[Rfam]
Nucleotides: 078
Stems, first nucleotide, its partner, number of pairs: 014064004019059010030049004
Number, partner (000 for none) and nucleotide at each position: 001000c002000u003000u004000u005000g006000c007000u008000u009000u010000c011000a012000g013000c014064c015063u016062c017061u018000u019059u020058a021057c022056a023055g024054u025053g026052c027051u028050g029000c030049c031048u032047u033046g034000u035000g036000u037000a038000c039000u040000u041000g042000u043000u044000g045000u046033c047032a048031a049030g050028c051027a052026g053025c054024a055023u056022u057021g058020u059019a060000c061017a062016g063015g064014g065000c066000u067000a068000u069000g070000a071000g072000a073000g074000c075000c076000u077000a078000g